[Rfam]
RNA sequence: UUCAUCAGCUAAUGGGCUAAUCACAUGCUGAACUAAAACUGCAUAAGUGGUGAAAUGCUUGAUAGAAGCACUCAGCGUUAUUAAGUGUGAUGAAAAUCUGCAAAGCAUAAAAAGUGAAAAAAUUUAGCACUAAACUGUUAGAGAUAACGCCUCUGGCAGUUUUUU
Numbered sequence: 001u002u003c004a005u006c007a008g009c010u011a012a013u014g015g016g017c018u019a020a021u022c023a024c025a026u027g028c029u030g031a032a033c034u035a036a037a038a039c040u041g042c043a044u045a046a047g048u049g050g051u052g053a054a055a056u057g058c059u060u061g062a063u064a065g066a067a068g069c070a071c072u073c074a075g076c077g078u079u080a081u082u083a084a085g086u087g088u089g090a091u092g093a094a095a096a097u098c099u100g101c102a103a104a105g106c107a108u109a110a111a112a113a114g115u116g117a118a119a120a121a122a123u124u125u126a127g128c129a130c131u132a133a134a135c136u137g138u139u140a141g142a143g144a145u146a147a148c149g150c151c152u153c154u155g156g157c158a159g160u161u162u163u164u165u
Base pairs, nucleotide, nucleotide: 001054002053003052004051005050006049007048026043027042028041030039033127034126035125036124037123055108056107057106058105059104060103068088069087070086071085072084074082075150076149077148078147079146080145081144089098090097091096132162133161134160135159136158137157138156139155140154141153142152143151
Shown here is a 165-nucleotide sequence, a member of the family "FuFi-1 RNA". The base pairs follow the family's consensus structure, which is taken from published work.